The record is a 180-nucleotide RNA sequence from Galbibacter marinus, which matches "Group II catalytic intron D1-D4-3" in Rfam. The match comes from Rfam's covariance-model search (110 bits). The base pairs follow the family's consensus structure. Lineage of the source: Bacteria > Pseudomonadati > Bacteroidota > Flavobacteriales > Galbibacter.

RNA sequence: CUAGUUGUGAAGCUAGGACUGAAAGAAGCGAGACUACAAAUUUCGGUACUGAGGAACACGAACCAUAUACCGAGGCUAUGAGGUCGGAUGAGUAGGCACAUAACUGCGAAGUCCCAAAUAUCUUAUAUAGAUAAGCACCGAAGUAGUAGAUAUGGCAGGAAUCGAAAGAAAGAAGAUGUU
Numbered sequence: 001c002u003a004g005u006u007g008u009g010a011a012g013c014u015a016g017g018a019c020u021g022a023a024a025g026a027a028g029c030g031a032g033a034c035u036a037c038a039a040a041u042u043u044c045g046g047u048a049c050u051g052a053g054g055a056a057c058a059c060g061a062a063c064c065a066u067a068u069a070c071c072g073a074g075g076c077u078a079u080g081a082g083g084u085c086g087g088a089u090g091a092g093u094a095g096g097c098a099c100a101u102a103a104c105u106g107c108g109a110a111g112u113c114c115c116a117a118a119u120a121u122c123u124u125a126u127a128u129a130g131a132u133a134a135g136c137a138c139c140g141a142a143g144u145a146g147u148a149g150a151u152a153u154g155g156c157a158g159g160a161a162u163c164g165a166a167a168g169a170a171a172g173a174a175g176a177u178g179u180u
Base pairs, nucleotide, nucleotide: 001016002015003014004013005012006011028180031177037172041167042166043165044164045163046162047160049158050157051156063155064154065153066152067151068150075147076146077145079142082139083138084137086114087113088112089111092107093106094105095104